RNA sequence: CGGUGUGAGUUAGUCACGUGAGGUGAAGUGUGAGAGUGGAACACACUGCAUCACAUGUGACCUCCCUACACAGU
Numbered sequence: 001c002g003g004u005g006u007g008a009g010u011u012a013g014u015c016a017c018g019u020g021a022g023g024u025g026a027a028g029u030g031u032g033a034g035a036g037u038g039g040a041a042c043a044c045a046c047u048g049c050a051u052c053a054c055a056u057g058u059g060a061c062c063u064c065c066c067u068a069c070a071c072a073g074u
Stems, first nucleotide, its partner, number of pairs: 003071005009065001013061008023051003027047001
The family of this 74-nucleotide sequence from Ornithorhynchus anatinus is "mir-1421 microRNA precursor family". It is one of the family's seed sequences. Its family is annotated with RISC complex and miRNA-mediated post-transcriptional gene silencing in the Gene Ontology.